The family of this 74-nucleotide RNA from Eragrostis curvula is "Small nucleolar RNA snoR53Y".
The family has 7 seed sequences and 513 matches in Rfam 15.1.
Its Rfam clan is "snoR53 clan".
RNA sequence: GUUCCCAGUGAUGGUAAUUUAACCAUGCUAAUACUGAUGUCCAUUGACGAGUAAAACAAUAUGCUGAGGGAACA
Numbered sequence: 001g002u003u004c005c006c007a008g009u010g011a012u013g014g015u016a017a018u019u020u021a022a023c024c025a026u027g028c029u030a031a032u033a034c035u036g037a038u039g040u041c042c043a044u045u046g047a048c049g050a051g052u053a054a055a056a057c058a059a060u061a062u063g064c065u066g067a068g069g070g071a072a073c074a
Stems, first nucleotide, its partner, number of pairs: 001073005
A reference for the family is Brown et al. (2001), "Multiple snoRNA gene clusters from Arabidopsis", RNA. Pairs were carried over by alignment from the consensus structure, which was predicted with WAR. The family's RNA type in Rfam is C/D-box small nucleolar RNA.